Background: This 134-nucleotide RNA sequence from Asarcornis scutulata belongs to the Rfam family "Small nucleolar RNA SNORA41". The family's RNA type in Rfam is H/ACA-box small nucleolar RNA. From the family's description: ACA41 is a member of the H/ACA class of snoRNA that guide the sites of modification of uridines to pseudouridines. Taxonomically the source falls in Asarcornis (Eukaryota, Craniata, Sauria, Anseriformes). A search with the family's covariance model found it, with a score of 102 bits. Pairs were carried over by alignment from the consensus structure, which was predicted with PFOLD.
Nucleotides: 134
Base pairs, nucleotide, nucleotide: 003061004060005059006058017047018046019045021043022042023041024040025039075123076122078120079119089113090112091111092110093109094108095107096106
Number, partner (000 for none) and nucleotide at each position: 001000c002000u003061c004060c005059a006058c007000a008000g009000u010000u011000a012000c013000u014000g015000g016000u017047c018046u019045g020000a021043a022042a023041c024040u025039g026000u027000u028000a029000g030000g031000u032000a033000c034000u035000g036000u037000a038000g039025c040024a041023g042022u043021u044000g045019c046018a047017g048000u049000a050000u051000u052000c053000c054000c055000u056000c057000u058006g059005u060004g061003g062000a063000a064000a065000a066000u067000a068000a069000a070000c071000u072000g073000u074000u075123a076122c077000c078120u079119a080000g081000c082000a083000u084000u085000a086000a087000g088000c089113u090112c091111c092110u093109u094108c095107u096106c097000a098000g099000a100000c101000u102000c103000u104000c105000c106096g107095a108094g109093a110092a111091g112090g113089a114000c115000u116000u117000c118000c119079u120078a121000u122076g123075u124000a125000a126000c127000a128000a129000a130000c131000a132000g133000u134000g